About this RNA: Rfam assigns this 91-nucleotide sequence from Vagococcus lutrae to the family "Guanidine-I riboswitch aptamer". Taxonomically the source falls in Vagococcus lutrae (Bacteria, Bacillota, Lactobacillales, Enterococcaceae).
[Rfam]
RNA sequence: CAAAAUGUUUUCUAGGGUUCCGCAUGUACAUGGUCUGGUCCGAGAGAAAACGCGUCGCAAGACGUCACGGAAGGACAAAAGCCUGGGAGAU
Numbered sequence: 001c002a003a004a005a006u007g008u009u010u011u012c013u014a015g016g017g018u019u020c021c022g023c024a025u026g027u028a029c030a031u032g033g034u035c036u037g038g039u040c041c042g043a044g045a046g047a048a049a050a051c052g053c054g055u056c057g058c059a060a061g062a063c064g065u066c067a068c069g070g071a072a073g074g075a076c077a078a079a080a081g082c083c084u085g086g087g088a089g090a091u
Stems, first nucleotide, its partner, number of pairs: 007051006015041002020038002022035001023032003053064004066086001068089001072084003
Rfam describes the family as follows. This family represents a conserved RNA structure found upstream of the ykkC and yxkD genes in Bacillus subtilis and related genes in other bacteria.